This 239-nucleotide RNA sequence from Phytomonas sp. Hart1 belongs to the Rfam family "Protozoan signal recognition particle RNA". A reference for the family is Wild et al. (2002), "Towards the structure of the mammalian signal recognition particle", Curr Opin Struct Biol. A search with the family's covariance model found it, with a score of 78 bits. By type it is a non-coding RNA gene. The source organism's lineage runs through Eukaryota, Euglenozoa, Metakinetoplastina, Trypanosomatidae and Phytomonas.

RNA sequence: UGCUCUGUAACCUUCGGGGGCUGUACAGGCUUAGUGAUGGCAAUCUGGGACGGUAGAAAGGGACCCGCUGCGUUGACGUGGCGCCCUGCUUGGCUGUGUGUCGGUGUCUUCCCGGGCCUCUGCAGAGAGGUUCUCCAGGUGCGCCGUUGAAGUAGAGGAAAUGGGUCCAGACCGGAAACGGGGCAGCCCGCCUCGCGCACGUCCGUCGUUGUAGGAACACGCCGCAGAGCAUGUCGACC
Numbered sequence: 001u002g003c004u005c006u007g008u009a010a011c012c013u014u015c016g017g018g019g020g021c022u023g024u025a026c027a028g029g030c031u032u033a034g035u036g037a038u039g040g041c042a043a044u045c046u047g048g049g050a051c052g053g054u055a056g057a058a059a060g061g062g063a064c065c066c067g068c069u070g071c072g073u074u075g076a077c078g079u080g081g082c083g084c085c086c087u088g089c090u091u092g093g094c095u096g097u098g099u100g101u102c103g104g105u106g107u108c109u110u111c112c113c114g115g116g117c118c119u120c121u122g123c124a125g126a127g128a129g130g131u132u133c134u135c136c137a138g139g140u141g142c143g144c145c146g147u148u149g150a151a152g153u154a155g156a157g158g159a160a161a162u163g164g165g166u167c168c169a170g171a172c173c174g175g176a177a178a179c180g181g182g183g184c185a186g187c188c189c190g191c192c193u194c195g196c197g198c199a200c201g202u203c204c205g206u207c208g209u210u211g212u213a214g215g216a217a218c219a220c221g222c223c224g225c226a227g228a229g230c231a232u233g234u235c236g237a238c239c
Stems, first nucleotide, its partner, number of pairs: 011018002067239001078225006085215005092207003096202006102146006111139002114133008147151001152196002156193003162190005172181003